Rfam assigns this 114-nucleotide RNA sequence from Clostridium kluyveri to the family "SAM riboswitch aptamer (S box leader)". For this family Rfam cites "The S box regulon: a new global transcription termination control system for methionine and cysteine biosynthesis genes in gram-positive bacteria" (Grundy and Henkin, Mol Microbiol, 1998). It is one of the family's seed sequences. Lineage of the source: Bacteria > Bacillati > Bacillota > Clostridia > Clostridium kluyveri. The base pairs follow the family's consensus structure, which is taken from published work. About the family: The SAM riboswitch is found upstream of a number of genes which code for proteins involved in methionine or cysteine biosynthesis in Gram-positive bacteria.
[Rfam]
RNA sequence: UUCUUAUCAAGAGAGACGGAGGGACUGGCCCUAUGAUGUCCGGCAACCAGAAGAUUUUUAUUUCAUGGUGCUAAUUCCAGCAGGUAUUAAUAUGAAAAGCCUGAUAGAUAAGAG
Numbered sequence: 001u002u003c004u005u006a007u008c009a010a011g012a013g014a015g016a017c018g019g020a021g022g023g024a025c026u027g028g029c030c031c032u033a034u035g036a037u038g039u040c041c042g043g044c045a046a047c048c049a050g051a052a053g054a055u056u057u058u059u060a061u062u063u064c065a066u067g068g069u070g071c072u073a074a075u076u077c078c079a080g081c082a083g084g085u086a087u088u089a090a091u092a093u094g095a096a097a098a099g100c101c102u103g104a105u106a107g108a109u110a111a112g113a114g
Stems, first nucleotide, its partner, number of pairs: 001114008013041001015040003021031003025080004042072004047068002050064004076106001081103005